[Rfam]
RNA sequence: GAUUGCCUGGGAUGUGCGCCAGCAAGCCUAUGUCCCUGAGCCGAUGUCAUCAGUACAGGGGCUCACUGAGCGGCUAUUGUGCAAGCUCGACAUGUAUCGAGAAGCCUACGGUCGUGAUUUGCGCCCCGCCUUGAACCAGUGGGUUCAAGGGCUACGGCACGCAGCGGCAUCCUGGGCAAUCA
Numbered sequence: 001g002a003u004u005g006c007c008u009g010g011g012a013u014g015u016g017c018g019c020c021a022g023c024a025a026g027c028c029u030a031u032g033u034c035c036c037u038g039a040g041c042c043g044a045u046g047u048c049a050u051c052a053g054u055a056c057a058g059g060g061g062c063u064c065a066c067u068g069a070g071c072g073g074c075u076a077u078u079g080u081g082c083a084a085g086c087u088c089g090a091c092a093u094g095u096a097u098c099g100a101g102a103a104g105c106c107u108a109c110g111g112u113c114g115u116g117a118u119u120u121g122c123g124c125c126c127c128g129c130c131u132u133g134a135a136c137c138a139g140u141g142g143g144u145u146c147a148a149g150g151g152c153u154a155c156g157g158c159a160c161g162c163a164g165c166g167g168c169a170u171c172c173u174g175g176g177c178a179a180u181c182a
Stems, first nucleotide, its partner, number of pairs: 002180014017166003032152004037147006058127003062123001064121002070115006081105002086101005